Notes: ASpks TB sRNA: a 78-nucleotide sequence from Streptomyces sp. YIM 121038. Pairs were carried over by alignment from the consensus structure, which is taken from published work. Rfam classes the family as an antisense RNA.
Nucleotides: 078
Stems, first nucleotide, its partner, number of pairs: 014026004035073002041068001047062001050059003
Number, partner (000 for none) and nucleotide at each position: 001000c002000u003000u004000g005000a006000c007000g008000g009000a010000g011000c012000c013000g014026a015025g016024c017023c018000a019000c020000a021000g022000g023017g024016g025015c026014u027000c028000c029000c030000g031000g032000u033000c034000g035073c036072c037000g038000g039000g040000c041068c042000g043000g044000u045000c046000c047062u048000u049000u050059c051058c052057g053000u054000a055000c056000g057052u058051g059050g060000c061000c062047a063000u064000g065000a066000g067000g068041g069000c070000c071000u072036g073035g074000g075000c076000c077000u078000c